[Rfam]
The record is a 162-nucleotide RNA sequence from Chanos chanos, which matches "U1 spliceosomal RNA" in Rfam.
RNA sequence: UUUCUUACCUGGCAGGGGAGACACCAUGAUCACGAAGGUGGUUCACCCAGGGUGAGGCUUGCAUUGCACUUGGGCUAUGCUGACCUCUGCGAAUUCCUCAAAUGUGGGAAUCUCGACUGCAUAAUUUGUGGUAGUGAGGGACUGCGUUCGCGCUCUCCCCUG
Numbered sequence: 001u002u003u004c005u006u007a008c009c010u011g012g013c014a015g016g017g018g019a020g021a022c023a024c025c026a027u028g029a030u031c032a033c034g035a036a037g038g039u040g041g042u043u044c045a046c047c048c049a050g051g052g053u054g055a056g057g058c059u060u061g062c063a064u065u066g067c068a069c070u071u072g073g074g075c076u077a078u079g080c081u082g083a084c085c086u087c088u089g090c091g092a093a094u095u096c097c098u099c100a101a102a103u104g105u106g107g108g109a110a111u112c113u114c115g116a117c118u119g120c121a122u123a124a125u126u127u128g129u130g131g132u133a134g135u136g137a138g139g140g141a142c143u144g145c146g147u148u149c150g151c152g153c154u155c156u157c158c159c160c161u162g
Stems, first nucleotide, its partner, number of pairs: 012120004016048003020044002023042005049088004054084001056081003060077001061075002090115003093111003097107002136161001138159004144153003

Pairs were carried over by alignment from the consensus structure, which is taken from published work. The organism belongs to Chanos, within Eukaryota.